[Rfam]
RNA: SAH (S-adenosyl-L-homocysteine) riboswitch aptamer
Organism: Burkholderiales bacterium PBB4
RNA sequence: UGCUCCGAGGAGCGUUGCAGUUCACGCGCAGUGAGCGAGGCUCGGACAGCUGGCAAGCCCUAUGGUGCGGGCCAGUUCCAAGACCAACGACGCUCACCCACU
Number, nucleotide and partner (000 for none) at each position: 001u000002g000003c000004u046005c045006c044007g043008a042009g000010g000011a000012g000013c000014g000015u000016u000017g000018c000019a000020g000021u035022u034023c033024a032025c031026g000027c000028g000029c000030a000031g025032u024033g023034a022035g021036c000037g000038a000039g000040g000041c000042u008043c007044g006045g005046a004047c000048a000049g000050c000051u000052g000053g000054c000055a000056a000057g000058c000059c000060c000061u000062a000063u000064g000065g000066u000067g000068c000069g000070g000071g000072c000073c000074a000075g000076u000077u000078c000079c000080a000081a000082g000083a000084c000085c000086a000087a000088c000089g000090a000091c000092g000093c000094u000095c000096a000097c000098c000099c000100a000101c000102u000